Background:
The family of this 120-nucleotide RNA from Anaerocolumna jejuensis is "THF (Tetrahydrofolate) riboswitch aptamer". Rfam links the family to the GO term tetrahydrofolate metabolic process.
RNA sequence: GGCAGAGUAGAUAAUUGUGGGUUAUGGGCCCGGGAAACGGAGAGUUGGUCUCGGGAGGGAAGCUUUCAUAUAGGUGUAUGCCGUAUGAAAGCUGCCGUACAAUUAUCGCAUCUCGCUGCU
Numbered sequence: 001g002g003c004a005g006a007g008u009a010g011a012u013a014a015u016u017g018u019g020g021g022u023u024a025u026g027g028g029c030c031c032g033g034g035a036a037a038c039g040g041a042g043a044g045u046u047g048g049u050c051u052c053g054g055g056a057g058g059g060a061a062g063c064u065u066u067c068a069u070a071u072a073g074g075u076g077u078a079u080g081c082c083g084u085a086u087g088a089a090a091g092c093u094g095c096c097g098u099a100c101a102a103u104u105a106u107c108g109c110a111u112c113u114c115g116c117u118g119c120u
Stems, first nucleotide, its partner, number of pairs: 001120005010107010020096003029055007040113001042111001044109001061093011